[Rfam]
RNA sequence: UGCCUAUGAUGAAUGAUGUAUUGUCCGUACCAUCUGAGAUCUUUCUUUGAUUAGUACUUUCAUCCAAUCCAAUCCAAUUUCUGAGGCAA
Numbered sequence: 001u002g003c004c005u006a007u008g009a010u011g012a013a014u015g016a017u018g019u020a021u022u023g024u025c026c027g028u029a030c031c032a033u034c035u036g037a038g039a040u041c042u043u044u045c046u047u048u049g050a051u052u053a054g055u056a057c058u059u060u061c062a063u064c065c066a067a068u069c070c071a072a073u074c075c076a077a078u079u080u081c082u083g084a085g086g087c088a089a
Stems, first nucleotide, its partner, number of pairs: 001088004
Dot-bracket structure: ((((................................................................................)))).